Description:
The family of this 68-nucleotide RNA sequence from Amylocarpus encephaloides is "bZIP non canonical Hac1/Xbp1 intron". The organism belongs to Amylocarpus, within Eukaryota. Rfam classes the family as a small RNA. A reference for the family is Iracane et al. (2018), "Identification of an Exceptionally Long Intron in the HAC1 Gene of Candida parapsilosis", mSphere. A search with the family's covariance model found it, with a score of 44 bits. Rfam's curators write: bZIP intron RNA is a non-canonical intron that was first reported in HAC1 gene in yeast and XBP1 gene in Metazoa.
[Rfam]
RNA sequence: UGUUCUCCCGAUAUGGCACAACAUCCUGCCGAGGUGUUGUGUGACCCGCAGUGUCAGUCGGGAGAACA
Numbered sequence: 001u002g003u004u005c006u007c008c009c010g011a012u013a014u015g016g017c018a019c020a021a022c023a024u025c026c027u028g029c030c031g032a033g034g035u036g037u038u039g040u041g042u043g044a045c046c047c048g049c050a051g052u053g054u055c056a057g058u059c060g061g062g063a064g065a066a067c068a
Stems, first nucleotide, its partner, number of pairs: 001068007009060004020038006043055003